Rfam assigns this 247-nucleotide RNA from Desulforamulus reducens to the family "T-box leader". It scores 119 bits against the family's covariance model. Rfam describes the family as follows. Uncharged tRNA acts as the effector for transcription antitermination of genes in the T-box leader family. Rfam links the family to the GO term tRNA binding.
RNA sequence: UGAAAGACGAUGAUGGAGAAAAGUAGGUCAAAUCCAGCCUUGCAGGGAGAAGAAGUCUAGACUGGGAGCUUCUUUAAGGUAUGGUUGAUUGAAGUUCACUCCGAAGUUGCUGUUCUGAAGUUUAAGUAGGGGCAGACGGGUUUUCCGCCGUUAUCAAGGAAGAGGUAUCGGAUGAACAGUCCCGUACCGGUAAAAGUGGCCAACGCAAUUAGGGUGGUACCGCGGAUGAUGAUUCUCCGUCCCUUGA
Number, nucleotide and partner (000 for none) at each position: 001u000002g000003a000004a000005a000006g000007a107008c106009g000010a000011u000012g000013a000014u000015g102016g101017a100018g099019a000020a000021a000022a000023g000024u000025a000026g090027g089028u088029c087030a086031a085032a000033u000034c000035c000036a000037g000038c079039c078040u077041u000042g000043c000044a000045g000046g000047g000048a000049g075050a074051a073052g072053a071054a070055g069056u068057c000058u000059a000060g000061a000062c000063u000064g000065g000066g000067a000068g056069c055070u054071u053072c052073u051074u050075u049076a000077a040078g039079g038080u000081a000082u000083g000084g000085u031086u030087g029088a028089u027090u026091g000092a000093a000094g000095u000096u000097c000098a000099c018100u017101c016102c015103g000104a000105a000106g008107u007108u000109g000110c135111u134112g133113u132114u131115c130116u129117g000118a000119a000120g000121u000122u000123u000124a000125a000126g000127u000128a000129g116130g115131g114132g113133c112134a111135g110136a000137c150138g149139g148140g000141u000142u000143u000144u000145c000146c000147g000148c139149c138150g137151u000152u000153a000154u000155c000156a000157a000158g000159g000160a000161a000162g000163a000164g000165g206166u205167a000168u203169c000170g201171g200172a000173u000174g000175a000176a000177c000178a000179g000180u000181c000182c000183c000184g000185u000186a000187c000188c000189g000190g000191u000192a000193a000194a000195a000196g000197u000198g000199g000200c171201c170202a000203a168204c000205g166206c165207a000208a000209u000210u000211a244212g243213g242214g241215u000216g000217g000218u000219a000220c000221c000222g240223c239224g238225g237226a236227u000228g000229a000230u000231g000232a000233u000234u000235c000236u226237c225238c224239g223240u222241c214242c213243c212244u211245u000246g000247a000